[Rfam]
RNA: Group II catalytic intron D1-D4-3
Nucleotides: 171
Stems, first nucleotide, its partner, number of pairs: 001016006028171002031168002035162001040156002043153001045150005061145006072137003079130003083111004089104004
Number, partner (000 for none) and nucleotide at each position: 001016c002015a003014c004013a005012u006011c007000g008000u009000g010000a011006g012005g013004u014003g015002u016001g017000g018000g019000a020000g021000a022000g023000a024000g025000g026000a027000a028171g029170c030000a031168a032167u033000a034000g035162c036000g037000a038000a039000a040156u041155c042000a043153u044000g045150g046149c047148u048147u049146g050000a051000c052000g053000a054000a055000c056000a057000g058000g059000a060000a061145c062144a063143g064142a065141a066140u067000a068000u069000a070000a071000g072137g073136c074135g075000u076000a077000a078000a079130a080129g081128g082000u083111g084110g085109a086108u087000a088000a089104g090103u091102u092101g093000g094000c095000u096000u097000a098000a099000g100000g101092c102091a103090a104089c105000a106000a107000a108086g109085u110084c111083c112000a113000a114000a115000a116000g117000g118000u119000a120000a121000c122000c123000g124000u125000a126000a127000c128081c129080c130079u131000a132000a133000a134000g135074c136073g137072u138000a139000a140066a141065u142064u143063c144062u145061g146049c147048a148047a149046g150045u151000a152000a153043a154000c155041g156040a157000g158000g159000a160000a161000a162035g163000a164000u165000a166000u167032a168031u169000g170029g171028c